[Rfam]
RNA: Bacterial RNase P class A
Organism: Thermopolyspora flexuosa
RNA sequence: CGAGCCGGCCGGGCGGCCGCGUCGGGGUCCUCCGUACGGAGGCCUCGCCGAGGAAGGUCCGGGCUCCACAGGGCAGGGUGGUCGGUAACACCGACCCGGGGUGACCCGCGGGAAAGUGCCACAGAAAGCAGACCGCCUCCGGCGCACGCCAGGAGGUAAGGGUGAAAGGGUGGUGUAAGAGACCACCAGCGUCCGUGGUGACACGGGCGGCUAGGUAAACCCCACCCGGAGCAAGGUCAAGAAGGGAUCCCUCGGGAUCCCGCGCGCGGCGCCUGAGGGUGGCCCGCCCGAGCCGCGCGGGUAGACCGCUUGAGGCCGUCGGCAACGACGGUCCUAGAUGGAUGGCCGCCGGUUCCGCGCCAGCGGAAUCACAGAACCCGGCCUACAGGCCGACUCGUCCG
Numbered sequence: 001c002g003a004g005c006c007g008g009c010c011g012g013g014c015g016g017c018c019g020c021g022u023c024g025g026g027g028u029c030c031u032c033c034g035u036a037c038g039g040a041g042g043c044c045u046c047g048c049c050g051a052g053g054a055a056g057g058u059c060c061g062g063g064c065u066c067c068a069c070a071g072g073g074c075a076g077g078g079u080g081g082u083c084g085g086u087a088a089c090a091c092c093g094a095c096c097c098g099g100g101g102u103g104a105c106c107c108g109c110g111g112g113a114a115a116g117u118g119c120c121a122c123a124g125a126a127a128g129c130a131g132a133c134c135g136c137c138u139c140c141g142g143c144g145c146a147c148g149c150c151a152g153g154a155g156g157u158a159a160g161g162g163u164g165a166a167a168g169g170g171u172g173g174u175g176u177a178a179g180a181g182a183c184c185a186c187c188a189g190c191g192u193c194c195g196u197g198g199u200g201a202c203a204c205g206g207g208c209g210g211c212u213a214g215g216u217a218a219a220c221c222c223c224a225c226c227c228g229g230a231g232c233a234a235g236g237u238c239a240a241g242a243a244g245g246g247a248u249c250c251c252u253c254g255g256g257a258u259c260c261c262g263c264g265c266g267c268g269g270c271g272c273c274u275g276a277g278g279g280u281g282g283c284c285c286g287c288c289c290g291a292g293c294c295g296c297g298c299g300g301g302u303a304g305a306c307c308g309c310u311u312g313a314g315g316c317c318g319u320c321g322g323c324a325a326c327g328a329c330g331g332u333c334c335u336a337g338a339u340g341g342a343u344g345g346c347c348g349c350c351g352g353u354u355c356c357g358c359g360c361c362a363g364c365g366g367a368a369u370c371a372c373a374g375a376a377c378c379c380g381g382c383c384u385a386c387a388g389g390c391c392g393a394c395u396c397g398u399c400c401g
Base pairs, nucleotide, nucleotide: 001397002396003395004394006392007391008390009389010388011386012350013349014348015347016346017345018344020050021049023047024046025045026044027043028042055384056383057382059381060380061379062378063377064231065230066229067228071285072284073283074282076227077226078225079224080223081095082094083093084092085091096110097108098107099106100105111222112221116220117219118216119215120214133161134160135157136156137155138154139153140152141150142149143148169187170186171185172184173183174182189211190209191208192207193206194205195204196203197202235307236306237305238304265297266296267295268294269293270292277289278288279287280286314333315332316331317330318329319328320327321326